[Rfam]
RNA: Lysine riboswitch aptamer
Organism: Clostridium isatidis
RNA sequence: AGGUGAGGUAGAGGCGCAAUAUUUAACAGUCUUUAGUGGAGUUCGAGAAAACGUUGAAGCUAGAGAGAAGGAAAUAUUGCCGAAGUGUAUAAUAUUUCUCGGUAUUAUAUGCUGGGCUUACAGUUAAUAGCUGUAAGACUGUCUCAAUAAACUACCCGGUUUAUUGAGUUGUGCUAUCUCAAAU
Numbered sequence: 001a002g003g004u005g006a007g008g009u010a011g012a013g014g015c016g017c018a019a020u021a022u023u024u025a026a027c028a029g030u031c032u033u034u035a036g037u038g039g040a041g042u043u044c045g046a047g048a049a050a051a052c053g054u055u056g057a058a059g060c061u062a063g064a065g066a067g068a069a070g071g072a073a074a075u076a077u078u079g080c081c082g083a084a085g086u087g088u089a090u091a092a093u094a095u096u097u098c099u100c101g102g103u104a105u106u107a108u109a110u111g112c113u114g115g116g117c118u119u120a121c122a123g124u125u126a127a128u129a130g131c132u133g134u135a136a137g138a139c140u141g142u143c144u145c146a147a148u149a150a151a152c153u154a155c156c157c158g159g160u161u162u163a164u165u166g167a168g169u170u171g172u173g174c175u176a177u178c179u180c181a182a183a184u
Base pairs, nucleotide, nucleotide: 006179007178008177009176010175011174016080017079018078019077020076021075022074023073024072031065032064033063034062035061036060037059084113085112086111087110088109089108090107091106092105093104094103095102114140115139117137118136119135120134121133122132123131124130143168144167145166146165147164148163149162150161151160